[Rfam]
RNA sequence: UGGUAGAUGCACCUUGAUCUUCGACUCCCCUGGUUGGCGAAUGCCUACUUGGGGAUUUUUUU
Numbered sequence: 001u002g003g004u005a006g007a008u009g010c011a012c013c014u015u016g017a018u019c020u021u022c023g024a025c026u027c028c029c030c031u032g033g034u035u036g037g038c039g040a041a042u043g044c045c046u047a048c049u050u051g052g053g054g055a056u057u058u059u060u061u062u
Stems, first nucleotide, its partner, number of pairs: 002013003027054004032049003036045002